A member of the RNA family "let-7 microRNA precursor family" from Carassius auratus, 86 nucleotides long. Rfam 15.1 lists 8,694 matches to the family in 797 species. A reference for the family is Rougvie (2001), "Control of developmental timing in animals", Nat Rev Genet. This family represents the microRNAs (miRNA) let-7 and mir-98. let-7 was identified from a study of developmental timing in C. elegans, and was later shown to be part of a much larger class of non-coding RNAs termed miRNAs.

RNA sequence: ACUGGCUGAGGUAGUAGUUUGUGCUGUUGGUUGGGAUGUGACAUUGCCCGUUUGGAGAUGACUGCGCAAGCUACUCCCUUGCCAGU
Numbered sequence: 001a002c003u004g005g006c007u008g009a010g011g012u013a014g015u016a017g018u019u020u021g022u023g024c025u026g027u028u029g030g031u032u033g034g035g036a037u038g039u040g041a042c043a044u045u046g047c048c049c050g051u052u053u054g055g056a057g058a059u060g061a062c063u064g065c066g067c068a069a070g071c072u073a074c075u076c077c078c079u080u081g082c083c084a085g086u
Stems, first nucleotide, its partner, number of pairs: 001086006008080004013075012026062002033048002051056001